[Rfam]
RNA sequence: UGUUUUUUUAAUCUCAUCUGGUAACUGUGAGGUUUUUUUGGUAAUCCCCAGUUACUGAAUGGGAUUCUGAAAAAC
Dot-bracket structure: ..(((((..((((((((...(.((.((.(.(..............).))).))..)..))))))))..)))))..

Rfam assigns this 75-nucleotide RNA sequence from Rhynchophorus ferrugineus to the family "mir-216 microRNA precursor family". For this family Rfam cites "Identification of novel chicken microRNAs and analysis of their genomic organization" (Shao et al., Gene, 2008). NCBI's taxonomy places the organism under Eukaryota, Metazoa, Bilateria, Endopterygota, Rhynchophorus. The family is grouped with related families in Rfam's "mir-216 clan". The family's consensus secondary structure was predicted with WAR.